[Rfam]
RNA sequence: UACCGAUGAGGAAGAAUUCCCAAGUAUAGGAAGUGCCGUAUGACACUUUGAAACGCACACAAUGG
Number, nucleotide and partner (000 for none) at each position: 001u000002a000003c000004c000005g000006a000007u000008g000009a000010g000011g000012a000013a000014g000015a000016a000017u000018u000019c000020c000021c000022a000023a000024g000025u000026a000027u000028a000029g000030g049031a048032a047033g046034u045035g044036c000037c000038g000039u000040a000041u000042g000043a000044c035045a034046c033047u032048u031049u030050g000051a000052a000053a000054c000055g000056c000057a000058c000059a000060c000061a000062a000063u000064g000065g000
RNA: Small nucleolar RNA U49
Organism: Dorcoceras hygrometricum